[Rfam]
RNA sequence: CUUUUUCACUCUCCUUUAAAGGCUUCAAGCUAAAUCAGUAAAUCAAACUAAAGCUUGAAGCCUUAAAGGAGAGUGAAGAAAAG
Numbered sequence: 001c002u003u004u005u006u007c008a009c010u011c012u013c014c015u016u017u018a019a020a021g022g023c024u025u026c027a028a029g030c031u032a033a034a035u036c037a038g039u040a041a042a043u044c045a046a047a048c049u050a051a052a053g054c055u056u057g058a059a060g061c062c063u064u065a066a067a068g069g070a071g072a073g074u075g076a077a078g079a080a081a082a083g
Base pairs, nucleotide, nucleotide: 006076007075008074009073010072011071012070013069014068015067017066019064020063021062022061023060024059025058026057
Dot-bracket structure: .....((((((((((.(.((((((((..............................)))))))).))))))))))).......
Record summary:
Shown here is an 83-nucleotide sequence from Corchorus capsularis, a member of the family "MIR473 microRNA precursor family". NCBI's taxonomy places the organism under Eukaryota, Embryophyta, Euphyllophyta, Gunneridae, Corchorus. The family's consensus secondary structure was predicted with WAR. Rfam links the family to the GO terms miRNA-mediated post-transcriptional gene silencing and RISC complex. A search with the family's covariance model found it, with a score of 60 bits.